Small nucleolar RNA snR37: a 435-nucleotide RNA sequence from Nakaseomyces glabratus. Rfam links the family to the GO terms RNA processing and nucleolus. The family's consensus secondary structure was predicted with WAR. Taxonomically the source falls in Nakaseomyces (Eukaryota, Opisthokonta, Fungi, Dikarya). Clan: SNORA64 clan.
RNA sequence: AUCAUCAGUAGUGGUUAAUACUAUCUCAAGAUAAUAUUAAUUACAUAUACACCAUAGAAACCUAAGGUAAAAUUUACGCAAGUUUUCAAAGCUCGGUUUCUUUAUCUCAUUUGUCGAAGGAAGGGGAACUUGUUCUCUAUCUUUUGGUGUAUGGGAGGGAGGUUGGGUGGAGUUAAUACUGGAACUUGUGUUUAAUUUACCGACCCAAUAAUACAACCCAAUAGCUGAAUGAGCAUUGACUACCUCCAAACAAGGUAGGCACAAUACCCAUUUCGUUUCUGGUUUCUUAGAUCAAAUUGUCUAUGAAGGAGUUUCCUCCUCUUUCGCUUUACGAAGUUGAAACGGGGAAAAGGUAGCACGUUAUCCAGAGGUCCAUAUAAUGUGGACUGAGAGUUUGGAUCUCCGCUGUGUCUCUUCCUUCAUGGUCAUACAUAU
Numbered sequence: 001a002u003c004a005u006c007a008g009u010a011g012u013g014g015u016u017a018a019u020a021c022u023a024u025c026u027c028a029a030g031a032u033a034a035u036a037u038u039a040a041u042u043a044c045a046u047a048u049a050c051a052c053c054a055u056a057g058a059a060a061c062c063u064a065a066g067g068u069a070a071a072a073u074u075u076a077c078g079c080a081a082g083u084u085u086u087c088a089a090a091g092c093u094c095g096g097u098u099u100c101u102u103u104a105u106c107u108c109a110u111u112u113g114u115c116g117a118a119g120g121a122a123g124g125g126g127a128a129c130u131u132g133u134u135c136u137c138u139a140u141c142u143u144u145u146g147g148u149g150u151a152u153g154g155g156a157g158g159g160a161g162g163u164u165g166g167g168u169g170g171a172g173u174u175a176a177u178a179c180u181g182g183a184a185c186u187u188g189u190g191u192u193u194a195a196u197u198u199a200c201c202g203a204c205c206c207a208a209u210a211a212u213a214c215a216a217c218c219c220a221a222u223a224g225c226u227g228a229a230u231g232a233g234c235a236u237u238g239a240c241u242a243c244c245u246c247c248a249a250a251c252a253a254g255g256u257a258g259g260c261a262c263a264a265u266a267c268c269c270a271u272u273u274c275g276u277u278u279c280u281g282g283u284u285u286c287u288u289a290g291a292u293c294a295a296a297u298u299g300u301c302u303a304u305g306a307a308g309g310a311g312u313u314u315c316c317u318c319c320u321c322u323u324u325c326g327c328u329u330u331a332c333g334a335a336g337u338u339g340a341a342a343c344g345g346g347g348a349a350a351a352g353g354u355a356g357c358a359c360g361u362u363a364u365c366c367a368g369a370g371g372u373c374c375a376u377a378u379a380a381u382g383u384g385g386a387c388u389g390a391g392a393g394u395u396u397g398g399a400u401c402u403c404c405g406c407u408g409u410g411u412c413u414c415u416u417c418c419u420u421c422a423u424g425g426u427c428a429u430a431c432a433u434a435u
Stems, first nucleotide, its partner, number of pairs: 008050003012045002014041007022033004056287007067205001071198002074195002076191011091168006098161006105154002171180003227273005233267001236264003240258005298428002301425002304422007311414001312350007320342001352413002357410004364399006370388007
Dot-bracket structure: .......(((.(((((((((.((((....)))).)))))))..))..))).....(((((((....(...((.(((((((((((((....((((((.((((((.((..............................................)).)))))).))))))..(((....))))))))))))))..)).))......).....................(((((.(..(((.(((((.........)))))...)))..).))))).......)))))))..........((.((.(((((((((((((((.(.....................).))))))).((...((((...(((((((((((((.....))))))).....)))))).......)))).))).))))))).)).)).......